U1 spliceosomal RNA: a 164-nucleotide sequence from Callorhinus ursinus. The match comes from Rfam's covariance-model search (113 bits). Pairs were carried over by alignment from the consensus structure, which is taken from published work. Rfam classes the family as a spliceosomal small nuclear RNA.
RNA sequence: AUACUUACCUGGUGGGAGAGAUAGCAUGAUCAUGAAGGUGGUUCUCUCAGGGUGAGGCUCAUCCAUUGCACUCAGGUCAUUCUGACCCCUGCAAUUUCCCCAAGCACAGGAAAUUCGGCUGCACAGUUUCUGCUGGUAGAGAACUGUGUUCACACUUUCCUCUG
Dot-bracket structure: ...........((((((((((.(.(((..........))).)))))))((((.(.((.....((..........)).....))..))))).(.((((.((........))))).).).))))...............((((.(..(((....)))..).)))).
Numbered sequence: 001a002u003a004c005u006u007a008c009c010u011g012g013u014g015g016g017a018g019a020g021a022u023a024g025c026a027u028g029a030u031c032a033u034g035a036a037g038g039u040g041g042u043u044c045u046c047u048c049a050g051g052g053u054g055a056g057g058c059u060c061a062u063c064c065a066u067u068g069c070a071c072u073c074a075g076g077u078c079a080u081u082c083u084g085a086c087c088c089c090u091g092c093a094a095u096u097u098c099c100c101c102a103a104g105c106a107c108a109g110g111a112a113a114u115u116c117g118g119c120u121g122c123a124c125a126g127u128u129u130c131u132g133c134u135g136g137u138a139g140a141g142a143a144c145u146g147u148g149u150u151c152a153c154a155c156u157u158u159c160c161u162c163u164g
Stems, first nucleotide, its partner, number of pairs: 012122004016048006023042001025040003049090004054086001056083002063076002092117001094115001095113003099110002138163004143158001146155003